Notes:
This 87-nucleotide RNA from Paenibacillus sp. J2TS4 belongs to the Rfam family "BsrC". A search with the family's covariance model found it, with a score of 85 bits. The 301 nucleotide sequence from Kouji Nakamura has been trimmed to a highly conserved ~85 nucleotide long core to form this family. Taxonomically the source falls in Paenibacillus (Bacteria, Bacilli, Caryophanales, Paenibacillaceae).
RNA sequence: ACUUACUAAAACAAUGAAAGCCCUACCUCUCUUUCAUCCUUGCGACUCCUUGAUCGCGCCAGUGUGAAUUAGCGAUACAUUACAAAC
Numbered sequence: 001a002c003u004u005a006c007u008a009a010a011a012c013a014a015u016g017a018a019a020g021c022c023c024u025a026c027c028u029c030u031c032u033u034u035c036a037u038c039c040u041u042g043c044g045a046c047u048c049c050u051u052g053a054u055c056g057c058g059c060c061a062g063u064g065u066g067a068a069u070u071a072g073c074g075a076u077a078c079a080u081u082a083c084a085a086a087c
Stems, first nucleotide, its partner, number of pairs: 034067003039062002041058005047052001